Rfam assigns this 169-nucleotide sequence from Salinicola sp. MIT1003 to the family "FMN riboswitch aptamer (RFN element)".
The base pairs follow the family's consensus structure, which is taken from published work.
Taxonomically the source falls in Salinicola (Bacteria, Pseudomonadati, Pseudomonadota, Gammaproteobacteria).
[Rfam]
Nucleotides: 169
Base pairs, nucleotide, nucleotide: 003167005165006164007163008162009161010160017029018028019027031149032148033138034137035081036080037079038078084114085113118134119133120132121131122130140152141151142150
Number, partner (000 for none) and nucleotide at each position: 001000a002000u003167c004000g005165g006164u007163u008162c009161u010160c011000a012000g013000g014000g015000c016000g017029g018028g019027g020000u021000g022000a023000a024000a025000g026000u027019c028018c029017c030000c031149a032148c033138c034137g035081g036080c037079g038078g039000u040000a041000a042000u043000g044000a045000u046000g047000c048000g049000g050000c051000g052000u053000g054000a055000a056000a057000a058000a059000g060000a061000c062000a063000c064000g065000c066000c067000a068000g069000c070000c071000u072000c073000u074000c075000a076000g077000c078038c079037c080036g081035c082000g083000a084114g085113c086000g087000c088000u089000u090000g091000a092000u093000g094000g095000c096000u097000a098000g099000c100000g101000c102000c103000a104000u105000c106000a107000a108000g109000g110000u111000c112000a113085g114084c115000a116000g117000a118134u119133u120132c121131g122130g123000u124000g125000a126000g127000a128000u129000u130122c131121c132120g133119a134118a135000g136000c137034c138033g139000a140152c141151g142150g143000u144000c145000a146000c147000a148032g149031u150142c151141c152140g153000g154000a155000u156000g157000a158000a159000a160010g161009a162008g163007a164006a165005c166000g167003g168000u169000u
About the family: The RFN element is a highly conserved domain that is found frequently in the 5'-untranslated regions of prokaryotic mRNAs that encode for flavin mononucleotide (FMN) biosynthesis and transport proteins. This element is a metabolite-dependent riboswitch that directly binds FMN in the absence of proteins. In Bacillus subtilis, the riboswitch most likely controls gene expression by causing premature transcription termination within the 5' untranslated region of the ribDEAHT operon and precluding access to the ribosome-binding site of ypaA mRNA.The FMN riboswitch structure, reported in present an FMN-bound six-stem junction, adopts a butterfly-like scaffold, stapled together by opposingly directed but nearly identically folded peripheral domains.